[Rfam]
The record is a 191-nucleotide RNA sequence from Phyllostomus discolor, which matches "U2 spliceosomal RNA" in Rfam. The base pairs follow the family's consensus structure, which is taken from published work. On this family, see Newby and Greenbaum, RNA 2001: "A conserved pseudouridine modification in eukaryotic U2 snRNA induces a change in branch-site architecture". Rfam classes the family as a spliceosomal small nuclear RNA.

RNA sequence: AUCACUUCUUGACUUUUGGCUAAGAUCAAGUAUAGUAUUUGUUCUUAUUAGUUUAAUAUCUGAACAUGUCCUCUCUCUGAGGACGAUAUAUUACAUGCAUUUCUGAAGCAGGGAGAUGGAAUAGGAGCUUGCUCUGUCCACUCUGUGCAUCGACCUGGUUUGGCAGUGCUUCUAGGAAUGGUGCAGCACAC
Numbered sequence: 001a002u003c004a005c006u007u008c009u010u011g012a013c014u015u016u017u018g019g020c021u022a023a024g025a026u027c028a029a030g031u032a033u034a035g036u037a038u039u040u041g042u043u044c045u046u047a048u049u050a051g052u053u054u055a056a057u058a059u060c061u062g063a064a065c066a067u068g069u070c071c072u073c074u075c076u077c078u079g080a081g082g083a084c085g086a087u088a089u090a091u092u093a094c095a096u097g098c099a100u101u102u103c104u105g106a107a108g109c110a111g112g113g114a115g116a117u118g119g120a121a122u123a124g125g126a127g128c129u130u131g132c133u134c135u136g137u138c139c140a141c142u143c144u145g146u147g148c149a150u151c152g153a154c155c156u157g158g159u160u161u162g163g164c165a166g167u168g169c170u171u172c173u174a175g176g177a178a179u180g181g182u183g184c185a186g187c188a189c190a191c
Base pairs, nucleotide, nucleotide: 007025008024009023011020013018046066048064049063050061051060068084069083070082071081072080073079112144113143114142115141118138119137124135125134126133127132147184148183149182150181151180152179154176155175156174157173158172